This 85-nucleotide RNA from Neobacillus rhizophilus belongs to the Rfam family "c-di-GMP-I riboswitch aptamer". Lineage of the source: Bacteria > Bacillati > Bacillota > Bacillaceae > Neobacillus.
RNA sequence: UUGAUUUAAGGGCAAAAUCACUGAAAGGUGAUGACGCAAAGCUAUAGGGGCCUCUGUGAUGGAGCAAGGCCAGCCAGCUGCCAUC
Numbered sequence: 001u002u003g004a005u006u007u008a009a010g011g012g013c014a015a016a017a018u019c020a021c022u023g024a025a026a027g028g029u030g031a032u033g034a035c036g037c038a039a040a041g042c043u044a045u046a047g048g049g050g051c052c053u054c055u056g057u058g059a060u061g062g063a064g065c066a067a068g069g070c071c072a073g074c075c076a077g078c079u080g081c082c083a084u085c
Stems, first nucleotide, its partner, number of pairs: 012037002017032006040079004047075002049071003056065002